RNase MRP: a 218-nucleotide RNA from Homarus americanus.
The base pairs follow the family's consensus structure, which is taken from published work.
The source organism's lineage runs through Eukaryota, Arthropoda, Communostraca, Nephropoidea and Homarus.
RNA sequence: CUUUCGGUGGGCGUUCCGCUAUCGGGGGUGACUUACUACCCGGGGAAACUCCUCAGACCUCAGGCAGAAAGUGCCGGGCGAUAAUGCCUCAACUACACCUGCGGCCUCAACACAGACCAGGAGGCCUCGGCCGAGUCUGGGGUCAGGUGUGGUUCGUGUCAUAGCAAAGUAAUGCGGAAACUGUCAGGCAACUUAAUGAGGGUUACGACUCACUGAAG
Number, nucleotide and partner (000 for none) at each position: 001c000002u218003u217004u216005c215006g214007g213008u212009g211010g210011g209012c000013g000014u179015u178016c177017c176018g175019c174020u000021a000022u043023c042024g041025g040026g039027g000028g000029u000030g000031a000032c000033u000034u000035a000036c000037u000038a000039c026040c025041c024042g023043g022044g000045g000046a000047a204048a203049c202050u000051c201052c200053u199054c198055a000056g000057a000058c000059c000060u000061c000062a000063g075064g074065c073066a072067g000068a000069a000070a000071g000072u066073g065074c064075c063076g000077g000078g089079c000080g087081a000082u000083a000084a000085u000086g000087c080088c000089u078090c000091a153092a000093c151094u000095a000096c149097a148098c147099c146100u145101g144102c000103g000104g000105c142106c141107u140108c139109a000110a000111c000112a000113c000114a138115g137116a136117c135118c000119a000120g000121g000122a000123g000124g131125c130126c000127u000128c000129g000130g125131c124132c000133g000134a000135g117136u116137c115138u114139g108140g107141g106142g105143u000144c101145a100146g099147g098148u097149g096150u000151g093152g000153u091154u000155c000156g000157u000158g000159u000160c000161a000162u000163a000164g000165c000166a000167a000168a000169g000170u000171a000172a000173u000174g019175c018176g017177g016178a015179a014180a000181c188182u187183g000184u000185c000186a000187g182188g181189c000190a000191a000192c000193u000194u000195a000196a000197u000198g054199a053200g052201g051202g049203u048204u047205a000206c000207g000208a000209c011210u010211c009212a008213c007214u006215g005216a004217a003218g002
Source information:
By type it is a ribozyme. The match comes from Rfam's covariance-model search (76 bits).